[Rfam]
The record is a 348-nucleotide sequence from Candidatus Parepulonipiscium sp. PG-Nuni2H_MBin01, which matches "Bacterial RNase P class A" in Rfam. Taxonomically the source falls in Candidatus Parepulonipiscium (Bacteria, Bacillati, Clostridia, Lachnospiraceae). A reference for the family is Frank and Pace (1998), "Ribonuclease P: unity and diversity in a tRNA processing ribozyme", Annu Rev Biochem. Rfam classes the family as a ribozyme.
RNA sequence: UAAGUAAGUCAGAUAGUCGCAAGCACAGAAUCGAAAGGUUGUGUUUGAGGAACGUCCGAGCUUCAUAGAGCAGAGUGCUGGAUAACACCCAGUGGAGGCGACUCUAAGGAAAGUGCAACAGAAAUAAACCACCUACAUUAUGUAGGAAAGGAUGGAAAGGCGAGGUAAGAGCUCACCGUCUUCUUGGUGACAAGAAGAGCAAUGUAAACCCCACUUGAAGCAAGACCGUAUAAAGACUUUUGUGGCUGCUCGUCACGUCUUAGGUAGGUCGCUAAAGUGUCUAGGUAACUAGGCACAUAGAUAGAUGACUGUCAAAUACAGAACUCGGCGUAUAGAUUUGGUUACAUU
Numbered sequence: 001u002a003a004g005u006a007a008g009u010c011a012g013a014u015a016g017u018c019g020c021a022a023g024c025a026c027a028g029a030a031u032c033g034a035a036a037g038g039u040u041g042u043g044u045u046u047g048a049g050g051a052a053c054g055u056c057c058g059a060g061c062u063u064c065a066u067a068g069a070g071c072a073g074a075g076u077g078c079u080g081g082a083u084a085a086c087a088c089c090c091a092g093u094g095g096a097g098g099c100g101a102c103u104c105u106a107a108g109g110a111a112a113g114u115g116c117a118a119c120a121g122a123a124a125u126a127a128a129c130c131a132c133c134u135a136c137a138u139u140a141u142g143u144a145g146g147a148a149a150g151g152a153u154g155g156a157a158a159g160g161c162g163a164g165g166u167a168a169g170a171g172c173u174c175a176c177c178g179u180c181u182u183c184u185u186g187g188u189g190a191c192a193a194g195a196a197g198a199g200c201a202a203u204g205u206a207a208a209c210c211c212c213a214c215u216u217g218a219a220g221c222a223a224g225a226c227c228g229u230a231u232a233a234a235g236a237c238u239u240u241u242g243u244g245g246c247u248g249c250u251c252g253u254c255a256c257g258u259c260u261u262a263g264g265u266a267g268g269u270c271g272c273u274a275a276a277g278u279g280u281c282u283a284g285g286u287a288a289c290u291a292g293g294c295a296c297a298u299a300g301a302u303a304g305a306u307g308a309c310u311g312u313c314a315a316a317u318a319c320a321g322a323a324c325u326c327g328g329c330g331u332a333u334a335g336a337u338u339u340g341g342u343u344a345c346a347u348u
Stems, first nucleotide, its partner, number of pairs: 001344003005340006011333001012313007020047009052331003056328005061220004068251004073216005078092004093107001094105004108211002113209002115205003129151002132146006159177002162174003178200001179198008224270004233261005242256005277296008